[Rfam]
RNA sequence: AUAAGGCAAUCGCCGAGUUCCUUUUAAUGGAAGCGGGGGACCCGUUUUUGGGGUGAAUCCUGUGAAACAGGUAGGGCAAAUUUCUUUCUGUCCGAAUCCGUCAGCUAACCUCGUAGGCGUUGAAAGAGAAGGA
Numbered sequence: 001a002u003a004a005g006g007c008a009a010u011c012g013c014c015g016a017g018u019u020c021c022u023u024u025u026a027a028u029g030g031a032a033g034c035g036g037g038g039g040a041c042c043c044g045u046u047u048u049u050g051g052g053g054u055g056a057a058u059c060c061u062g063u064g065a066a067a068c069a070g071g072u073a074g075g076g077c078a079a080a081u082u083u084c085u086u087u088c089u090g091u092c093c094g095a096a097u098c099c100g101u102c103a104g105c106u107a108a109c110c111u112c113g114u115a116g117g118c119g120u121u122g123a124a125a126g127a128g129a130a131g132g133a
Base pairs, nucleotide, nucleotide: 011119012118013117014116018032019031020030033114034113035112036111037110038109043050044049051099052098053097059071060070061069062068074093075092076091077090
Background:
The record is a 133-nucleotide RNA from Sporomusa ovata, which matches "c-di-AMP riboswitch aptamer (ydaO/yuaA leader)" in Rfam. About the family: This family represents a conserved RNA structure found upstream of the ydaO and yuaA genes in Bacillus subtilis and related genes in other bacteria. Gene Ontology terms of the family: regulation of gene expression and cyclic-di-AMP binding. Pairs were carried over by alignment from the consensus structure.